RNA sequence: CUUCACCGAGCCCAGCCACAGCGGCGACUCACGAUCCUGGCCGUACGUGGCCAGCAGCGCCUGCGCCUC
Numbered sequence: 001c002u003u004c005a006c007c008g009a010g011c012c013c014a015g016c017c018a019c020a021g022c023g024g025c026g027a028c029u030c031a032c033g034a035u036c037c038u039g040g041c042c043g044u045a046c047g048u049g050g051c052c053a054g055c056a057g058c059g060c061c062u063g064c065g066c067c068u069c
Base pairs, nucleotide, nucleotide: 015025016024017023028065030063032059033058037054038053039052041050042049043048

The family of this 69-nucleotide RNA sequence from Bailinhaonella thermotolerans is "ASpks TB sRNA". Lineage of the source: Bacteria > Bacillati > Actinomycetota > Actinomycetes > Bailinhaonella. It scores 74 bits against the family's covariance model. Pairs were carried over by alignment from the consensus structure, which is taken from published work.